[Rfam]
Annotation: Small nucleolar RNA SNORD46: a 104-nucleotide RNA sequence from Atrichornis clamosus. Rfam links the family to the GO terms nucleolus and RNA processing. U40 is a C/D box small nucleolar RNA, also known as snoZ153 in plants. The human sequence has also been annotated in the sequence databases as U46. U40 is encoded in intron 2 of the ribosomal protein S8 gene in human, and is hypothesised to guide methylation of 2'-O-ribose residues on 28S ribosomal RNA. This family represents vertebrate U40. It scores 51 bits against the family's covariance model. Pairs were carried over by alignment from the consensus structure. Rfam classes the family as a C/D-box small nucleolar RNA.
RNA sequence: AAUUGGAGUGAUGAAGCUUUCACCUUAGGUAGAUGCAACAGACCGUUCUGGUCAUUUACUGUAUCUGCCGAUGCUAGGGUUUGUCAUAGUUACACUGACCAGAU
Numbered sequence: 001a002a003u004u005g006g007a008g009u010g011a012u013g014a015a016g017c018u019u020u021c022a023c024c025u026u027a028g029g030u031a032g033a034u035g036c037a038a039c040a041g042a043c044c045g046u047u048c049u050g051g052u053c054a055u056u057u058a059c060u061g062u063a064u065c066u067g068c069c070g071a072u073g074c075u076a077g078g079g080u081u082u083g084u085c086a087u088a089g090u091u092a093c094a095c096u097g098a099c100c101a102g103a104u
Base pairs, nucleotide, nucleotide: 001104003102004101005100006099